A member of the RNA family "RT-16 RNA", 206 nucleotides long.
Pairs were carried over by alignment from the consensus structure, which is taken from published work.
It is annotated as a small RNA.

RNA sequence: CCUGGCCAUUAGAGGCUGGGCCACAUGUCAAUUUAUUUGCACAUAUUUAAGUUUAUUUUAAGUCAGUAAAAUUCAACUUUGACAAUUAGUAAAGGGUUUCUUUUUUAGAAAAAAAGAAACUACUGUGGUAGAAAAAACUACAAUUGUGAAAAUUGAAAAAGUGGUGGCAGAUAAAAAUCUGAUAAUCGGUAAAUUGGCUAAUCCCA
Numbered sequence: 001c002c003u004g005g006c007c008a009u010u011a012g013a014g015g016c017u018g019g020g021c022c023a024c025a026u027g028u029c030a031a032u033u034u035a036u037u038u039g040c041a042c043a044u045a046u047u048u049a050a051g052u053u054u055a056u057u058u059u060a061a062g063u064c065a066g067u068a069a070a071a072u073u074c075a076a077c078u079u080u081g082a083c084a085a086u087u088a089g090u091a092a093a094g095g096g097u098u099u100c101u102u103u104u105u106u107a108g109a110a111a112a113a114a115a116g117a118a119a120c121u122a123c124u125g126u127g128g129u130a131g132a133a134a135a136a137a138c139u140a141c142a143a144u145u146g147u148g149a150a151a152a153u154u155g156a157a158a159a160a161g162u163g164g165u166g167g168c169a170g171a172u173a174a175a176a177a178u179c180u181g182a183u184a185a186u187c188g189g190u191a192a193a194u195u196g197g198c199u200a201a202u203c204c205c206a
Stems, first nucleotide, its partner, number of pairs: 001020007027198010043172002046169001048167001076162005083155005092147001